[Rfam]
RNA sequence: UUGAAGCUCCAUCUACAAAUGGAUAAGAUUUUGAUCUUUAAGAUUUCGAUCUUUGUGUAUACGAGUUUUUGAAAAUAACGGAGUAAUACCAAGUUCGUGCAAGAGGGUUGGUAUUGCUCCGUUA
Numbered sequence: 001u002u003g004a005a006g007c008u009c010c011a012u013c014u015a016c017a018a019a020u021g022g023a024u025a026a027g028a029u030u031u032u033g034a035u036c037u038u039u040a041a042g043a044u045u046u047c048g049a050u051c052u053u054u055g056u057g058u059a060u061a062c063g064a065g066u067u068u069u070u071g072a073a074a075a076u077a078a079c080g081g082a083g084u085a086a087u088a089c090c091a092a093g094u095u096c097g098u099g100c101a102a103g104a105g106g107g108u109u110g111g112u113a114u115u116g117c118u119c120c121g122u123u124a
Stems, first nucleotide, its partner, number of pairs: 008023005077123013091109002